[Rfam]
RNA sequence: GUAUUCUUGCGCCCAUGAACCGCCUCCUGUCCGCUCUCCGACGUCGCCGCUCGCCCCACCUUUAGGGCCUGGCUUAGUUACGGACGCGCGUUGCAUCGUUCAACGCACAGGAAAGUUCGAAUCACGAAAGCCACGGCCAGUCCGUGGCUUUUUG
Number, nucleotide and partner (000 for none) at each position: 001g000002u000003a000004u000005u000006c000007u120008u119009g000010c090011g089012c000013c000014c088015a000016u000017g000018a000019a000020c086021c000022g000023c000024c000025u000026c000027c000028u000029g000030u000031c083032c082033g081034c000035u000036c000037u000038c000039c077040g000041a075042c000043g073044u072045c071046g000047c000048c000049g068050c067051u000052c000053g000054c065055c000056c000057c000058a000059c000060c000061u000062u000063u000064a000065g054066g000067g050068c049069c000070u000071g045072g044073c043074u000075u041076a000077g039078u000079u000080a000081c033082g032083g031084a000085c000086g020087c000088g014089c011090g010091u000092u000093g000094c000095a000096u000097c000098g000099u000100u000101c000102a000103a000104c000105g000106c000107a000108c000109a000110g000111g000112a000113a000114a000115g000116u000117u000118c000119g008120a007121a000122u000123c000124a000125c000126g000127a151128a150129a149130g148131c147132c146133a145134c144135g143136g142137c000138c000139a000140g000141u000142c136143c135144g134145u133146g132147g131148c130149u129150u128151u127152u000153u000154g000
RNA: Burkholderia sRNA 7